The family of this 130-nucleotide sequence from Phyllostomus discolor is "Small nucleolar RNA SNORA38". The family's RNA type in Rfam is H/ACA-box small nucleolar RNA. ACA38 is a member of the H/ACA class of snoRNA that guide the sites of modification of uridines to pseudouridines. Rfam 15.1 lists 628 matches to the family in 149 species.
RNA sequence: CCCUCCUACAGAGGGGCGUCCAUGGUUCCCUGCGUCUGGACGUGUAAGAACCGGAGGCGAAGAUGUGUGGACUUGGGGAAGUCCGGAGUGGCCUGCUCCCUGCAGGCUCGACAUCAGCCGUCCCACACAG
Numbered sequence: 001c002c003c004u005c006c007u008a009c010a011g012a013g014g015g016g017c018g019u020c021c022a023u024g025g026u027u028c029c030c031u032g033c034g035u036c037u038g039g040a041c042g043u044g045u046a047a048g049a050a051c052c053g054g055a056g057g058c059g060a061a062g063a064u065g066u067g068u069g070g071a072c073u074u075g076g077g078g079a080a081g082u083c084c085g086g087a088g089u090g091g092c093c094u095g096c097u098c099c100c101u102g103c104a105g106g107c108u109c110g111a112c113a114u115c116a117g118c119c120g121u122c123c124c125a126c127a128c129a130g
Base pairs, nucleotide, nucleotide: 002057003056004055005054006053016043017042018041019040020039021038024030025029069123070122071121073120090108091107092106093105094104095103096102